[Rfam]
RNA sequence: UUCUCGCUCAAAGAAUCGCAUUCGAAGCACACAAACAGAAACAUCCUCAUCGAUGUUUCAAUCUACUCUUAUGCUUUGGGAGAAAGUCCCCGGACACCCUUCUUUCUAAAAGUUAGGAUUGCGGAAACGCGCCGCCAUAGAAGCACUUGCGGCUUCUCUUCUACCAAUUCCUUACCUUCGAUUUCAUCCAUCCUUUUGCCGUUAUUACCAUUGCCACGAGGCUUCUUGAAAAUUGAAUUCGGAGCAUGGGAGACCACAUGGAUGAAGAUAUGAGUCCGAGCUCCUGUGUAAUGUUUUCAAUUGACUCGAAGAAGAGUGGUGAUGGGAGGUAGAAGGCAUGUUCCUGAUUGGGGUGGGAGUGUUAAUGGUAGUCGAGGCUUUUUCGUCGAGAUCGAUAGUUAUGCGAUUGCUUUCCUUUGCUGCAAAGCUGGGAAAGUAACUCGAUGGGGCUUAUUCUUGAUGCGAGA
Number, nucleotide and partner (000 for none) at each position: 001u000002u467003c466004u465005c464006g463007c462008u460009c459010a458011a457012a000013g000014a408015a407016u406017c405018g404019c403020a000021u000022u080023c078024g077025a076026a075027g074028c073029a000030c000031a000032c000033a000034a000035a000036c000037a000038g059039a058040a057041a056042c055043a054044u053045c000046c000047u000048c000049a000050u000051c000052g000053a044054u043055g042056u041057u040058u039059c038060a000061a000062u000063c000064u000065a000066c000067u000068c000069u000070u000071a000072u000073g028074c027075u026076u025077u024078g023079g000080g022081a000082g000083a000084a452085a451086g450087u000088c449089c448090c447091c446092g000093g000094a000095c000096a000097c000098c000099c000100u000101u000102c000103u000104u000105u000106c000107u000108a000109a000110a000111a000112g000113u000114u000115a000116g000117g000118a000119u000120u131121g130122c129123g128124g000125a000126a000127a000128c123129g122130c121131g120132c000133c000134g000135c000136c000137a000138u000139a000140g000141a000142a000143g000144c000145a000146c000147u000148u000149g000150c000151g000152g000153c000154u000155u000156c000157u000158c000159u000160u000161c000162u000163a000164c000165c000166a000167a000168u000169u000170c000171c000172u000173u000174a000175c000176c000177u000178u000179c000180g000181a000182u000183u000184u000185c000186a000187u000188c000189c000190a000191u000192c000193c000194u000195u000196u000197u000198g000199c000200c000201g000202u000203u000204a000205u000206u000207a000208c000209c000210a000211u000212u000213g000214c000215c000216a000217c000218g000219a000220g000221g000222c000223u000224u000225c000226u000227u000228g000229a000230a000231a000232a000233u000234u000235g000236a000237a000238u000239u000240c000241g000242g000243a000244g000245c000246a000247u000248g000249g000250g000251a000252g000253a000254c000255c000256a000257c000258a000259u000260g000261g000262a000263u000264g000265a000266a000267g000268a000269u000270a000271u000272g000273a000274g000275u000276c000277c000278g380279a379280g378281c000282u000283c000284c376285u375286g000287u000288g372289u371290a000291a000292u000293g369294u368295u367296u000297u000298c000299a000300a000301u000302u000303g000304a360305c359306u358307c357308g000309a000310a000311g000312a000313a000314g000315a000316g000317u000318g000319g000320u000321g000322a000323u000324g000325g000326g000327a000328g000329g000330u000331a000332g000333a000334a000335g000336g000337c000338a000339u000340g000341u000342u000343c353344c352345u351346g000347a000348u000349u000350g000351g345352g344353g343354u000355g000356g000357g307358a306359g305360u304361g000362u000363u000364a000365a000366u000367g295368g294369u293370a000371g289372u288373c000374g000375a285376g284377g000378c280379u279380u278381u000382u000383u000384c000385g000386u000387c000388g000389a000390g000391a000392u000393c000394g000395a000396u000397a000398g000399u000400u000401a000402u000403g019404c018405g017406a016407u015408u014409g000410c436411u435412u434413u433414c432415c431416u000417u000418u000419g000420c000421u000422g000423c000424a000425a000426a000427g000428c000429u000430g000431g415432g414433a413434a412435a411436g410437u000438a000439a000440c000441u000442c000443g000444a000445u000446g091447g090448g089449g088450c086451u085452u084453a000454u000455u000456c000457u011458u010459g009460a008461u000462g007463c006464g005465a004466g003467a002